[Rfam]
RNA: ZMP/ZTP riboswitch aptamer (pfl RNA motif)
Organism: Actinoplanes sp. OR16
RNA sequence: GUCCCGGGCCGUGACUGGCGCGUUCGGAUGGUUGACCAUCGGGGAGCGGCUCCGUCGAGACGACGACCUGCCGUGCGCCUGGGCCUCUUCG
Numbered sequence: 001g002u003c004c005c006g007g008g009c010c011g012u013g014a015c016u017g018g019c020g021c022g023u024u025c026g027g028a029u030g031g032u033u034g035a036c037c038a039u040c041g042g043g044g045a046g047c048g049g050c051u052c053c054g055u056c057g058a059g060a061c062g063a064c065g066a067c068c069u070g071c072c073g074u075g076c077g078c079c080u081g082g083g084c085c086u087c088u089u090c091g
Stems, first nucleotide, its partner, number of pairs: 004054001006052007015043002017079005028039004070084003